RNA: c-di-GMP-II-GAG riboswitch aptamer
RNA sequence: AGCCUUGGGGGAGGUUCCAGCGGCACGGCGUCCCAAGUCUCGGUCGCCCGACUCGUGCCGAUAGCCAAUGGCGAGACCGACCUCGGCGGAG
Numbered sequence: 001a002g003c004c005u006u007g008g009g010g011g012a013g014g015u016u017c018c019a020g021c022g023g024c025a026c027g028g029c030g031u032c033c034c035a036a037g038u039c040u041c042g043g044u045c046g047c048c049c050g051a052c053u054c055g056u057g058c059c060g061a062u063a064g065c066c067a068a069u070g071g072c073g074a075g076a077c078c079g080a081c082c083u084c085g086g087c088g089g090a091g
Base pairs, nucleotide, nucleotide: 003089004088006086008084009083010082011081013066014065015064021060022059023058024057025056026055027054028053042078043077044074045073046072047071048070